The family of this 191-nucleotide RNA sequence from Paramesorhizobium deserti is "Rhizobiales sRNA Atu_C9".
[Rfam]
RNA sequence: GGCGCUCGAAGGAGGCAGACCGAUGGGACUUACACGUUCGCUUAAUGUCCUGAUGAUCUGUGCAGCGUUCGCAUUUGUCGGUGCGAUGGUAAUGGGCCUUCUUCCAUAAGAAGGAUCAGAAACUGCAGAUAGGGGUCCUCAAUCCCAGGGGAAGAACAAAAGGAAAAAGCCCGGCACAGCGUCCGGGCUUU
Numbered sequence: 001g002g003c004g005c006u007c008g009a010a011g012g013a014g015g016c017a018g019a020c021c022g023a024u025g026g027g028a029c030u031u032a033c034a035c036g037u038u039c040g041c042u043u044a045a046u047g048u049c050c051u052g053a054u055g056a057u058c059u060g061u062g063c064a065g066c067g068u069u070c071g072c073a074u075u076u077g078u079c080g081g082u083g084c085g086a087u088g089g090u091a092a093u094g095g096g097c098c099u100u101c102u103u104c105c106a107u108a109a110g111a112a113g114g115a116u117c118a119g120a121a122a123c124u125g126c127a128g129a130u131a132g133g134g135g136u137c138c139u140c141a142a143u144c145c146c147a148g149g150g151g152a153a154g155a156a157c158a159a160a161a162g163g164a165a166a167a168a169g170c171c172c173g174g175c176a177c178a179g180c181g182u183c184c185g186g187g188c189u190u191u
Stems, first nucleotide, its partner, number of pairs: 014049004025041001027039002166191009
It is annotated as a small RNA.